Shown here is a 131-nucleotide RNA from Caenorhabditis remanei, a member of the family "Caenorhabditis snoRNA ceN80". The source organism's lineage runs through Eukaryota, Metazoa, Chromadorea, Rhabditina and Caenorhabditis. For this family Rfam cites "Systematic identification of non-coding RNA 2,2,7-trimethylguanosine cap structures in Caenorhabditis elegans" (Jia et al., BMC Mol Biol, 2007).

RNA sequence: AUGCAUCGAAAAGGGACGGGCUUUCUGUGUGAAUUGUUCCGUAUAAUUUUGAUGCAAUAAAAUAGAGAAGUGCAGUGUUACUCUUCAUCACGUAUUCUGUGAACGGAGAGUGUCAAGCGCUUCCCACAAUA
Dot-bracket structure: ..(((((((((....(((((...(.(....).)....)))))....))))))))).........(.(((((((..((.((((((((..((((.....))))...)))))))).)).))))))).)......